A member of the RNA family "DUF805b RNA", 35 nucleotides long. The base pairs follow the family's consensus structure, which is taken from published work.
RNA sequence: UAGGUGGAAUCCGAAAAACUAGAAAAGAGUAGGAA
Dot-bracket structure: ..(((....[[[.....)))...........]]].